[Rfam]
RNA sequence: UGGCUGUAACCAAAUCAAAUUUUGAGAAGUUUACUGGCUAGCCACUGUGAGACUUCUGUAAAUCUUUGUCUAUGGAUCUGCUUACCAAGCUUCUCACAUUU
Numbered sequence: 001u002g003g004c005u006g007u008a009a010c011c012a013a014a015u016c017a018a019a020u021u022u023u024g025a026g027a028a029g030u031u032u033a034c035u036g037g038c039u040a041g042c043c044a045c046u047g048u049g050a051g052a053c054u055u056c057u058g059u060a061a062a063u064c065u066u067u068g069u070c071u072a073u074g075g076a077u078c079u080g081c082u083u084a085c086c087a088a089g090c091u092u093c094u095c096a097c098a099u100u101u
Stems, first nucleotide, its partner, number of pairs: 024095008036082003041077001043075001044073001047070001
Annotation: The record is a 101-nucleotide RNA from Rosa chinensis, which matches "Small nucleolar RNA snoR109" in Rfam. The family's RNA type in Rfam is H/ACA-box small nucleolar RNA.